Record summary: The family of this 53-nucleotide RNA from Acidovorax sp. RAC01 is "nhaA-I RNA". By type it is a riboswitch. The family's consensus secondary structure is taken from published work. A search with the family's covariance model found it, with a score of 41 bits.

RNA sequence: GGGUGUCGCGCCGCGUUGGUGCGCCAGGUGUUGCGAAAGGUCGGGCCGCCUCG
Numbered sequence: 001g002g003g004u005g006u007c008g009c010g011c012c013g014c015g016u017u018g019g020u021g022c023g024c025c026a027g028g029u030g031u032u033g034c035g036a037a038a039g040g041u042c043g044g045g046c047c048g049c050c051u052c053g
Stems, first nucleotide, its partner, number of pairs: 005025001007023006034053003039050003